[Rfam]
RNA sequence: GUUUGACAGAGAUGUAUGGAGUGAGAGAAGGGAAAUGAUAUUUUCCGAUCCCAUCGUUACUCUCUUCCCUCUCUCAUUCCAUACAUCGUCUGACGAAC
Numbered sequence: 001g002u003u004u005g006a007c008a009g010a011g012a013u014g015u016a017u018g019g020a021g022u023g024a025g026a027g028a029a030g031g032g033a034a035a036u037g038a039u040a041u042u043u044u045c046c047g048a049u050c051c052c053a054u055c056g057u058u059a060c061u062c063u064c065u066u067c068c069c070u071c072u073c074u075c076a077u078u079c080c081a082u083a084c085a086u087c088g089u090c091u092g093a094c095g096a097a098c
Stems, first nucleotide, its partner, number of pairs: 001098005007092004011087018030069005046056004